[Rfam]
RNA: Aggregatibacter sRNA 22
Nucleotides: 095
Stems, first nucleotide, its partner, number of pairs: 008026004014020002029045002033041003046058005061082002064079006
Number, partner (000 for none) and nucleotide at each position: 001000g002000u003000g004000c005000g006000g007000u008026c009025a010024a011023a012000a013000a014020a015019u016000a017000a018000g019015g020014u021000g022000c023011u024010u025009u026008g027000a028000a029045c030044g031000c032000u033041g034040g035039u036000g037000c038000u039035g040034c041033c042000c043000a044030c045029g046058a047057u048056g049055c050054c051000a052000a053000a054050g055049g056048c057047g058046u059000a060000a061082a062081u063000a064079a065078a066077u067076c068075a069074c070000u071000u072000u073000a074069g075068u076067g077066a078065u079064u080000g081062a082061u083000g084000a085000a086000u087000a088000a089000u090000c091000g092000c093000c094000a095000c